[Rfam]
RNA: DUF3800-VIII RNA
RNA sequence: GUAGCCCUUCGUUUCACGAACGCCCAAGUUCCACUUGGGACGCUAUGUAGUGAACGCGGGGCCUU
Numbered sequence: 001g002u003a004g005c006c007c008u009u010c011g012u013u014u015c016a017c018g019a020a021c022g023c024c025c026a027a028g029u030u031c032c033a034c035u036u037g038g039g040a041c042g043c044u045a046u047g048u049a050g051u052g053a054a055c056g057c058g059g060g061g062c063c064u065u
Stems, first nucleotide, its partner, number of pairs: 001065001004062005010056004015052003023039007